[Rfam]
RNA sequence: UCCUCACGAAUGCCGCGUUUCUUUGCUCACGAACCGACUCGUACACACGUACGUACGCCGUCAACAAUGGCAAAUGAGAAAUUCGGAGUAAUCUUCACCUUUUGCACGCUAUCCGACAAUCCUCUCACUGAAGUUUGCGCGGCUCUGGCAUCUGCCCGUGAGGGCCUACCAUGACACUCAUGGCUGCACUUGGCAUCAGAAAUCUCAGCCGCGGGUCUGAGCAUAUGCUUUGUGCUCGCUGGCUAUGGGAGCUAGUGCGAAGAUUGUGUUUGAGAGAACACUUUAGUGCAAUACGCGGCGUAUCUGAGUCUCUUGCUACCUUCGGGUGGUGGAGGGGAGGAUAUCAUUCGAUUCCGAUUACUCUUGUGAGGA
Numbered sequence: 001u002c003c004u005c006a007c008g009a010a011u012g013c014c015g016c017g018u019u020u021c022u023u024u025g026c027u028c029a030c031g032a033a034c035c036g037a038c039u040c041g042u043a044c045a046c047a048c049g050u051a052c053g054u055a056c057g058c059c060g061u062c063a064a065c066a067a068u069g070g071c072a073a074a075u076g077a078g079a080a081a082u083u084c085g086g087a088g089u090a091a092u093c094u095u096c097a098c099c100u101u102u103u104g105c106a107c108g109c110u111a112u113c114c115g116a117c118a119a120u121c122c123u124c125u126c127a128c129u130g131a132a133g134u135u136u137g138c139g140c141g142g143c144u145c146u147g148g149c150a151u152c153u154g155c156c157c158g159u160g161a162g163g164g165c166c167u168a169c170c171a172u173g174a175c176a177c178u179c180a181u182g183g184c185u186g187c188a189c190u191u192g193g194c195a196u197c198a199g200a201a202a203u204c205u206c207a208g209c210c211g212c213g214g215g216u217c218u219g220a221g222c223a224u225a226u227g228c229u230u231u232g233u234g235c236u237c238g239c240u241g242g243c244u245a246u247g248g249g250a251g252c253u254a255g256u257g258c259g260a261a262g263a264u265u266g267u268g269u270u271u272g273a274g275a276g277a278a279c280a281c282u283u284u285a286g287u288g289c290a291a292u293a294c295g296c297g298g299c300g301u302a303u304c305u306g307a308g309u310c311u312c313u314u315g316c317u318a319c320c321u322u323c324g325g326g327u328g329g330u331g332g333a334g335g336g337g338a339g340g341a342u343a344u345c346a347u348u349c350g351a352u353u354c355c356g357a358u359u360a361c362u363c364u365u366g367u368g369a370g371g372a
Stems, first nucleotide, its partner, number of pairs: 001372004007366003012299007022074004036062003084356005093262004154165004169183004186258005192252001207244003300344006
The record is a 372-nucleotide RNA from Pseudocercospora fuligena, which matches "Nuclear RNase P" in Rfam.
The family is grouped with related families in Rfam's "RNaseP clan".
The family's RNA type in Rfam is ribozyme.